RNA sequence: GGAAGCGGAUGAGUUACUGGUGUACUCAGCAGUCUUCAAAACUGUCUUGGCGAGUUAAAUCGCUGGUAGGUUCGAUUCCUAUACGCUUCC
Number, nucleotide and partner (000 for none) at each position: 001g090002g089003a088004a087005g086006c085007g084008g000009a082010u000011g027012a026013g025014u000015u024016a023017c022018u000019g000020g000021u000022g017023u016024a015025c013026u012027c011028a000029g045030c044031a043032g042033u041034c000035u000036u000037c000038a000039a000040a000041a033042c032043u031044g030045u029046c000047u000048u065049g064050g063051c062052g061053a000054g000055u000056u000057a000058a000059a000060u000061c052062g051063c050064u049065g048066g000067u081068a080069g079070g078071u000072u000073c000074g000075a000076u000077u000078c070079c069080u068081a067082u009083a000084c007085g006086c005087u004088u003089c002090c001